[Rfam]
RNA sequence: UUGAAGGAUAUUAUCAAGGAGUCGAAUGAUGAGGUAACGCUCUGAAGGGCUCCCCCUGCGUCGAAUAGCACACUGUUUAGUAAGAAAUAGUGUGUUAUAAGCUCGGCUAAUAGGCGUGAGAAUUUACCGUAACAGUCCGGCUGACGAAAGCCUACCCGAUGGGACGGUGUAAAUCAUGGCGCUUGGGUUGAAUAG
Numbered sequence: 001u002u003g004a005a006g007g008a009u010a011u012u013a014u015c016a017a018g019g020a021g022u023c024g025a026a027u028g029a030u031g032a033g034g035u036a037a038c039g040c041u042c043u044g045a046a047g048g049g050c051u052c053c054c055c056c057u058g059c060g061u062c063g064a065a066u067a068g069c070a071c072a073c074u075g076u077u078u079a080g081u082a083a084g085a086a087a088u089a090g091u092g093u094g095u096u097a098u099a100a101g102c103u104c105g106g107c108u109a110a111u112a113g114g115c116g117u118g119a120g121a122a123u124u125u126a127c128c129g130u131a132a133c134a135g136u137c138c139g140g141c142u143g144a145c146g147a148a149a150g151c152c153u154a155c156c157c158g159a160u161g162g163g164a165c166g167g168u169g170u171a172a173a174u175c176a177u178g179g180c181g182c183u184u185g186g187g188u189u190g191a192a193u194a195g
Base pairs, nucleotide, nucleotide: 018053019052020051021050022049023048031043033041034040054187055186056185061106062105063104064103065098066097067096068095069094070093071092072091073090074089075088076087077086078085113183114182115181116180117179122174123173124172125171126170127169128146129145130144134142135141150168151167152166156163157162
Dot-bracket structure: .................((((((.......(.((.....)).)....))))))(((....((((((((((((((((((......))))))))))))))....))))......(((((....(((((((((...((.....)).)))...(((...((....))..)))))))))....))))).)))........